Annotation:
TPP riboswitch aptamer (THI element): a 104-nucleotide RNA sequence from Cognatundibacterium oligocarboniphilum.
RNA sequence: AAAUAAUGCUAGGGGUCCUGUCCGCACUUGUGCGAUGACGGGUGAGAAAUACCCUCGAACCUGAUCUGGAUAAUGCCAGCGAAGGGAAGCUGCUAAAGACACUG
Numbered sequence: 001a002a003a004u005a006a007u008g009c010u011a012g013g014g015g016u017c018c019u020g021u022c023c024g025c026a027c028u029u030g031u032g033c034g035a036u037g038a039c040g041g042g043u044g045a046g047a048a049a050u051a052c053c054c055u056c057g058a059a060c061c062u063g064a065u066c067u068g069g070a071u072a073a074u075g076c077c078a079g080c081g082a083a084g085g086g087a088a089g090c091u092g093c094u095a096a097a098g099a100c101a102c103u104g
Stems, first nucleotide, its partner, number of pairs: 008090003011055004016049001017042005060085003066079004
Lineage of the source: Bacteria > Pseudomonadati > Pseudomonadota > Burkholderiales > Cognatundibacterium. The base pairs follow the family's consensus structure, which is taken from published work. Vitamin B(1) in its active form thiamin pyrophosphate (TPP) is an essential coenzyme that is synthesised by coupling of pyrimidine and thiazole moieties in bacteria. A search with the family's covariance model found it, with a score of 62 bits.